[Rfam]
Record summary:
Rfam assigns this 216-nucleotide sequence from Acanthosepion pharaonis to the family "Pseudomonas sRNA P4". Taxonomically the source falls in Acanthosepion (Eukaryota, Metazoa, Bilateria, Coleoidea). It scores 39 bits against the family's covariance model.

RNA sequence: AAAAAAUUUUAAUUUGGGUUUUUUUUUUAAAAAAGGGUUUUUGGGGGGGGGCCCCCGGGUUUUUUUUUCCCCCCCCGGGGGGGGGGCCCCCGGGGGGGAAAAAAAAAACCCGCCCGGGGGGAAAAAAUUUUUGGGAUUUGGGGGGAAAAAAACCCCCUUUGGCCCUUUUUUUUUUUAAAAUUUUUUUUUUGGGGGGGGGGAAAAACCCCCCCCCUU
Numbered sequence: 001a002a003a004a005a006a007u008u009u010u011a012a013u014u015u016g017g018g019u020u021u022u023u024u025u026u027u028u029a030a031a032a033a034a035g036g037g038u039u040u041u042u043g044g045g046g047g048g049g050g051g052c053c054c055c056c057g058g059g060u061u062u063u064u065u066u067u068u069c070c071c072c073c074c075c076c077g078g079g080g081g082g083g084g085g086g087c088c089c090c091c092g093g094g095g096g097g098g099a100a101a102a103a104a105a106a107a108a109c110c111c112g113c114c115c116g117g118g119g120g121g122a123a124a125a126a127a128u129u130u131u132u133g134g135g136a137u138u139u140g141g142g143g144g145g146a147a148a149a150a151a152a153c154c155c156c157c158u159u160u161g162g163c164c165c166u167u168u169u170u171u172u173u174u175u176u177a178a179a180a181u182u183u184u185u186u187u188u189u190u191g192g193g194g195g196g197g198g199g200g201a202a203a204a205a206c207c208c209c210c211c212c213c214c215u216u
Base pairs, nucleotide, nucleotide: 009031010030012028017025035214036213037212038044045210046209047208048207049206052200053199054198055197056112057111058110059109060108063105064104065103066102067101068099069098070097071096072095073094074093075092078090079089080088081087113193114192115191116190119188120187121186122185123184124183128179129178130177136173
The family's RNA type in Rfam is small RNA.